This 55-nucleotide RNA from Ziziphus jujuba belongs to the Rfam family "Plastid-atpF group II-D1 intron". About the family: Plastid atpF is a non-coding RNA (ncRNA) recognised in plastids. Taxonomically the source falls in Ziziphus (Eukaryota, Streptophytina, Magnoliopsida, eudicotyledons). The family has 49 seed sequences and 1,372 matches in Rfam 15.1. Its family is annotated with Group II intron splicing in the Gene Ontology.
RNA sequence: GAAUUUUUUUUCGAUAUAAAACAUUCAUGUUGAUAAAAAAUUAUUUGAACCCGUU
Number, nucleotide and partner (000 for none) at each position: 001g000002a000003a000004u000005u000006u000007u000008u000009u000010u000011u033012c032013g031014a030015u029016a028017u027018a000019a000020a000021a000022c000023a000024u000025u000026c000027a017028u016029g015030u014031u013032g012033a011034u000035a000036a000037a000038a000039a000040a000041u000042u000043a000044u000045u000046u000047g000048a000049a000050c000051c000052c000053g000054u000055u000